[Rfam]
RNA sequence: AGAGAGACUGCCAAACCCGUCGCGAGACGGGGACGGAAAGCCACGGGCCUCACGCAGGCAGCCGGGUUGCCGACG
Numbered sequence: 001a002g003a004g005a006g007a008c009u010g011c012c013a014a015a016c017c018c019g020u021c022g023c024g025a026g027a028c029g030g031g032g033a034c035g036g037a038a039a040g041c042c043a044c045g046g047g048c049c050u051c052a053c054g055c056a057g058g059c060a061g062c063c064g065g066g067u068u069g070c071c072g073a074c075g
Stems, first nucleotide, its partner, number of pairs: 004071001011036002016031006034061001039068004044064003047059003